The record is a 135-nucleotide RNA from Crassaminicella thermophila, which matches "PyrR binding site" in Rfam. Taxonomically the source falls in Crassaminicella (Bacteria, Bacillota, Eubacteriales, Clostridiaceae). Its family is annotated with pyrimidine nucleobase transport and pyrimidine nucleobase biosynthetic process in the Gene Ontology. The family's RNA type in Rfam is cis-regulatory element.
RNA sequence: AGUACCUUUAAAUCGGUCCAGAGAGGCUGAAAAGGAUGUGAUAAAGAAGAUUCACAUAAAUUUUUAUUUGUGGUGAACCGUGUUCUUUGUGUGUAAAAAACAGACCUUUUGCCUCUGGCAAAAGGUUUUUUAUUA
Numbered sequence: 001a002g003u004a005c006c007u008u009u010a011a012a013u014c015g016g017u018c019c020a021g022a023g024a025g026g027c028u029g030a031a032a033a034g035g036a037u038g039u040g041a042u043a044a045a046g047a048a049g050a051u052u053c054a055c056a057u058a059a060a061u062u063u064u065u066a067u068u069u070g071u072g073g074u075g076a077a078c079c080g081u082g083u084u085c086u087u088u089g090u091g092u093g094u095a096a097a098a099a100a101c102a103g104a105c106c107u108u109u110u111g112c113c114u115c116u117g118g119c120a121a122a123a124g125g126u127u128u129u130u131u132a133u134u135a
Base pairs, nucleotide, nucleotide: 005035006034007033008032009031013030014029015028016027017026018025049078051076052075055072056071057070058069059068060067061066100130102128103127104126105125106124107123108122109121110120111119112118113117